Source information:
Shown here is a 108-nucleotide RNA from Elioraea sp. Yellowstone, a member of the family "Glycine riboswitch aptamer".

RNA sequence: CGACGGACCUCUGGAAAGCCGGGUGCCGCGAGGCGCCCGCACCGACGGAGUAAGCGGGCCGGGCGAGGGUUCCGCGAAUCUCUCAGGUCACGGGACAGAGGGGGGCCA
Numbered sequence: 001c002g003a004c005g006g007a008c009c010u011c012u013g014g015a016a017a018g019c020c021g022g023g024u025g026c027c028g029c030g031a032g033g034c035g036c037c038c039g040c041a042c043c044g045a046c047g048g049a050g051u052a053a054g055c056g057g058g059c060c061g062g063g064c065g066a067g068g069g070u071u072c073c074g075c076g077a078a079u080c081u082c083u084c085a086g087g088u089c090a091c092g093g094g095a096c097a098g099a100g101g102g103g104g105g106c107c108a
Stems, first nucleotide, its partner, number of pairs: 008101006020039007041088003044084002048082003054075005